RNA sequence: UCCAAUGGCGAACGGUCACUCCACACUAUGAGCGUUCGUACAUAAAAAAGGAGGAUUAUUACCGUUAGCUUGCGGUGCGGCAGCGUGGAGACCUGUCGUAAUGCGGUGCAUCUUAAGCGCUUUUGCAAAGGAUGCCGCGAGGCGGUUCGGAGGAGUCCUUUCCGUCAGAGCAUAUGUAAAUGGCA
Numbered sequence: 001u002c003c004a005a006u007g008g009c010g011a012a013c014g015g016u017c018a019c020u021c022c023a024c025a026c027u028a029u030g031a032g033c034g035u036u037c038g039u040a041c042a043u044a045a046a047a048a049a050g051g052a053g054g055a056u057u058a059u060u061a062c063c064g065u066u067a068g069c070u071u072g073c074g075g076u077g078c079g080g081c082a083g084c085g086u087g088g089a090g091a092c093c094u095g096u097c098g099u100a101a102u103g104c105g106g107u108g109c110a111u112c113u114u115a116a117g118c119g120c121u122u123u124u125g126c127a128a129a130g131g132a133u134g135c136c137g138c139g140a141g142g143c144g145g146u147u148c149g150g151a152g153g154a155g156u157c158c159u160u161u162c163c164g165u166c167a168g169a170g171c172a173u174a175u176g177u178a179a180a181u182g183g184c185a
Stems, first nucleotide, its partner, number of pairs: 008039007016031003062075004068171004076100008085092002103138004109134006141166005149158003
RNA: malK-I RNA